[Rfam]
RNA sequence: AUUACAGAGCCAUUUUGGCAUUCUGUCCACCUCCAUAUAUACCAAUUCUUCUGAAUUGGCGCCCACAAGCGUUUGGAGGCGGCCAGGAUGCCAAAUUGGCUCUGUAAA
Numbered sequence: 001a002u003u004a005c006a007g008a009g010c011c012a013u014u015u016u017g018g019c020a021u022u023c024u025g026u027c028c029a030c031c032u033c034c035a036u037a038u039a040u041a042c043c044a045a046u047u048c049u050u051c052u053g054a055a056u057u058g059g060c061g062c063c064c065a066c067a068a069g070c071g072u073u074u075g076g077a078g079g080c081g082g083c084c085a086g087g088a089u090g091c092c093a094a095a096u097u098g099g100c101u102c103u104g105u106a107a108a
Stems, first nucleotide, its partner, number of pairs: 011098001015094006024085002027082002030079005
Dot-bracket structure: ..........(...((((((...((.((.(((((........................................))))).)).))...))))))...)..........